[Rfam]
Notes: A member of the RNA family "Purine riboswitch aptamer" from Thermoflavimicrobium daqui, 101 nucleotides long. Pairs were carried over by alignment from the consensus structure, which is taken from published work. Rfam describes the family as follows. Riboswitches are metabolite binding domains within certain messenger RNAs that serve as precision sensors for their corresponding targets.

RNA sequence: UGAUUGUUUUGGUAAUCAACUCGUAUAACCUUGACAAUACGGGUUAAGGGUAUCUACUGGAAACCGUAAAUUUCCUAGCUACGAGAAAAAACCACCUUAUU
Numbered sequence: 001u002g003a004u005u006g007u008u009u010u011g012g013u014a015a016u017c018a019a020c021u022c023g024u025a026u027a028a029c030c031u032u033g034a035c036a037a038u039a040c041g042g043g044u045u046a047a048g049g050g051u052a053u054c055u056a057c058u059g060g061a062a063a064c065c066g067u068a069a070a071u072u073u074c075c076u077a078g079c080u081a082c083g084a085g086a087a088a089a090a091a092c093c094a095c096c097u098u099a100u101u
Base pairs, nucleotide, nucleotide: 020085021084022083023082024081025080029049030048031047032046033045034044035043058077059075060074061073062072063071

Source information:
The match comes from Rfam's covariance-model search (68 bits).